[Rfam]
RNA sequence: AUUGUUGCAUGACAAGGAGAGAGAGCACGCUUGUUAACAUUCAUGCAAGGGACAUGACUGUCUACAAGCGUGCUCUCUAUCUUUGUCAUAUAUGC
Numbered sequence: 001a002u003u004g005u006u007g008c009a010u011g012a013c014a015a016g017g018a019g020a021g022a023g024a025g026c027a028c029g030c031u032u033g034u035u036a037a038c039a040u041u042c043a044u045g046c047a048a049g050g051g052a053c054a055u056g057a058c059u060g061u062c063u064a065c066a067a068g069c070g071u072g073c074u075c076u077c078u079a080u081c082u083u084u085g086u087c088a089u090a091u092a093u094g095c
Stems, first nucleotide, its partner, number of pairs: 010088005016082002020078002023075001025073010
A member of the RNA family "MIR535 microRNA precursor family" from Cephalotus follicularis, 95 nucleotides long.
The base pairs follow the family's consensus structure, which was predicted with RNAalifold.
The literature on the family includes a 2010 paper in Nucleic Acids Res by Zeng et al., "Conservation and divergence of microRNAs and their functions in Euphorbiaceous plants".
The match comes from Rfam's covariance-model search (97 bits).
Rfam 15.1 lists 544 matches to the family in 108 species.